[Rfam]
Nucleotides: 081
Base pairs, nucleotide, nucleotide: 001081002080003079004078005077006076007075
Number, partner (000 for none) and nucleotide at each position: 001081g002080u003079u004078c005077g006076g007075g008000u009000a010000u011000g012000a013000u014000g015000a016000c017000a018000a019000a020000a021000c022000a023000a024000a025000u026000u027000g028000u029000c030000a031000g032000a033000g034000g035000c036000u037000u038000c039000a040000g041000c042000a043000c044000u045000g046000c047000u048000g049000a050000a051000u052000u053000g054000u055000u056000a057000u058000u059000u060000u061000g062000c063000a064000c065000g066000u067000c068000a069000g070000u071000c072000u073000g074000a075007u076006c077005c078004g079003a080002a081001u